[Rfam]
Nucleotides: 089
Stems, first nucleotide, its partner, number of pairs: 002088005015075007026064010
Number, partner (000 for none) and nucleotide at each position: 001000g002088u003087c004086a005085g006084c007000a008000g009000u010000g011000c012000u013000c014000u015075a016074g017073c018072a019071g020070c021069a022000c023000g024000u025000a026064a027063a028062u029061a030060c031059u032058g033057g034056a035055g036000u037000u038000u039000g040000g041000g042000a043000u044000u045000g046000c047000c048000u049000g050000u051000u052000g053000g054000u055035c056034u057033c058032c059031a060030g061029u062028a063027u064026u065000g066000c067000a068000u069021u070020g071019c072018u073017g074016c075015u076000u077000u078000a079000g080000u081000g082000a083000g084006g085005c086004u087003g088002g089000a